[Rfam]
RNA sequence: CUGAAGGCCGCGUCCGGGUCAAUUCCCCGCUGCGGGAACACCCAAUCUCCCUGCUCGUCCCCUCCGAGGUGGAGGUGCGGGCGGGAGAGCGCGUCACCAUCAG
Numbered sequence: 001c002u003g004a005a006g007g008c009c010g011c012g013u014c015c016g017g018g019u020c021a022a023u024u025c026c027c028c029g030c031u032g033c034g035g036g037a038a039c040a041c042c043c044a045a046u047c048u049c050c051c052u053g054c055u056c057g058u059c060c061c062c063u064c065c066g067a068g069g070u071g072g073a074g075g076u077g078c079g080g081g082c083g084g085g086a087g088a089g090c091g092c093g094u095c096a097c098c099a100u101c102a103g
Stems, first nucleotide, its partner, number of pairs: 001103004009093005016043003023038005046088006053082006
L4-Archaeoglobi ribosomal protein leades: a 103-nucleotide sequence. A reference for the family is Eckert and Weinberg (2020), "Discovery of 20 novel ribosomal leader candidates in bacteria and archaea", BMC Microbiol. The sequence is in the family's curated seed alignment.